[Rfam]
A member of the RNA family "SAM (S-adenosyl methionine) riboswitch aptamer" from Rothia aerolata, 119 nucleotides long.
Pairs were carried over by alignment from the consensus structure, which is taken from published work.
Rfam 15.1 lists 2,360 matches to the family in 1,305 species.
A search with the family's covariance model found it, with a score of 57 bits.
Taxonomically the source falls in Rothia (Bacteria, Bacillati, Actinomycetes, Micrococcaceae).

RNA sequence: GAUUCAGAAGCUCACACCUAAGCCCUCAAGCUGUGUGACUGGCAACCGCAAUCGCUUUCGCGGUGCCCCUUGAGGAAAAUCGGCCCGCUCCUUCAACUGGGGAGUGGGAAGUGCGACUA
Dot-bracket structure: ((((....(..(((((....((........)).))))).)(((..(((.((.....))..))).)))..........))))..((((((((((.....))))))))))...........